[Rfam]
RNA sequence: GUGUUUGCAAAUGACGACCGAUUUUGAAAUGGUCUCACGGCCAAAAACUCGUGUCCGACAUCAACCC
Numbered sequence: 001g002u003g004u005u006u007g008c009a010a011a012u013g014a015c016g017a018c019c020g021a022u023u024u025u026g027a028a029a030u031g032g033u034c035u036c037a038c039g040g041c042c043a044a045a046a047a048c049u050c051g052u053g054u055c056c057g058a059c060a061u062c063a064a065c066c067c
Stems, first nucleotide, its partner, number of pairs: 001067001003065003016055003019051003023047003031042003

Record summary:
Selenocysteine insertion sequence 1: a 67-nucleotide RNA sequence. The base pairs follow the family's consensus structure, which is taken from published work. The sequence is in the family's curated seed alignment. About the family: The incorporation of selenocysteine into a protein sequence is directed by an in-frame UGA codon (usually a stop codon) within the coding region of the mRNA. Selenoprotein mRNAs contain a conserved secondary structure in the 3' UTR that is required for the distinction of UGA stop from UGA selenocysteine. The selenocysteine insertion sequence (SECIS) is around 60 nt in length and adopts a hairpin structure which is sufficiently well-defined and conserved to act as a computational screen for selenoprotein genes. Gene Ontology term of the family: selenocysteine incorporation. It is annotated as a cis-regulatory element.